[Rfam]
RNA sequence: GGUCAUGAGUUCCAGCGUCAAGCCCCGGCUUGCUGGGCGGCAACCCUCCUACCGCGGUGGGGUGCUCCGGGUGACGACACGGCGACGAGCGAAUGCGCUCGACGCAAGCGCGGGUU
Numbered sequence: 001g002g003u004c005a006u007g008a009g010u011u012c013c014a015g016c017g018u019c020a021a022g023c024c025c026c027g028g029c030u031u032g033c034u035g036g037g038c039g040g041c042a043a044c045c046c047u048c049c050u051a052c053c054g055c056g057g058u059g060g061g062g063u064g065c066u067c068c069g070g071g072u073g074a075c076g077a078c079a080c081g082g083c084g085a086c087g088a089g090c091g092a093a094u095g096c097g098c099u100c101g102a103c104g105c106a107a108g109c110g111c112g113g114g115u116u
Base pairs, nucleotide, nucleotide: 002078003077004076009038011037012036013035014034015033016032021030022029039066040065041064044062045061046060048057049056082105083104084103086101087100088099089098090097091096
RNA: SAM (S-adenosyl methionine) riboswitch aptamer